[Rfam]
RNA: Glycine riboswitch aptamer
Organism: Paenibacillus beijingensis
RNA sequence: AUGAAGGUUUUGGGAGAGAUUACUUUACAUUAAAGUAACGCCGAAGGAAUAAGCCCGGUCAGGGUGAAGAUCUCAGGCAAAAGGACCAAUACCGGACA
Numbered sequence: 001a002u003g004a005a006g007g008u009u010u011u012g013g014g015a016g017a018g019a020u021u022a023c024u025u026u027a028c029a030u031u032a033a034a035g036u037a038a039c040g041c042c043g044a045a046g047g048a049a050u051a052a053g054c055c056c057g058g059u060c061a062g063g064g065u066g067a068a069g070a071u072c073u074c075a076g077g078c079a080a081a082a083g084g085a086c087c088a089a090u091a092c093c094g095g096a097c098a
Base pairs, nucleotide, nucleotide: 006093007092008091010089011088012087013086020038021037022036023035024034025033026032040078041077042076043074044073047072048071053065054064